[Rfam]
Rfam assigns this 126-nucleotide sequence from Echinops telfairi to the family "Small nucleolar RNA SNORA77".
Rfam's curators put it in the seed alignment.
NCBI's taxonomy places the organism under Eukaryota, Craniata, Tetrapoda, Tenrecidae, Echinops.
RNA sequence: GCAGACACACUCUGCCUCCGGCUGCCAACCUCAGCCCGGUGCUUUUUCUGUCUGCCAGAGAACCGCCCGGCUUGCUGCGAGUGUCUUGGCCUAUCUGAGGUGGCACAGCUCUCCGGGGACAUGUGU
Number, nucleotide and partner (000 for none) at each position: 001g055002c054003a053004g052005a051006c050007a000008c000009a000010c000011u000012c000013u000014g042015c041016c000017u039018c038019c000020g036021g000022c034023u033024g032025c000026c000027a000028a000029c000030c000031u000032c024033a023034g022035c000036c020037c000038g018039g017040u000041g015042c014043u000044u000045u000046u000047u000048c000049u000050g006051u005052c004053u003054g002055c001056c000057a000058g000059a000060g000061a000062a000063c000064c000065g000066c117067c116068c115069g114070g113071c000072u000073u000074g109075c108076u107077g106078c000079g104080a000081g000082u102083g101084u100085c099086u098087u000088g000089g000090c000091c000092u000093a000094u000095c000096u000097g000098a086099g085100g084101u083102g082103g000104c079105a000106c077107a076108g075109c074110u000111c000112u000113c070114c069115g068116g067117g066118g000119a000120c000121a000122u000123g000124u000125g000126u000
Rfam's curators write: ACA63 (SNORA77) is a member of the H/ACA class of snoRNAs that guide the sites of modification of uridines to pseudouridines. This snoRNA was identified by computational screening and its expression in mouse experimentally verified by Northern blot and primer extension analysis. ACA63 is proposed to guide the pseudouridylation of 18S rRNA U814.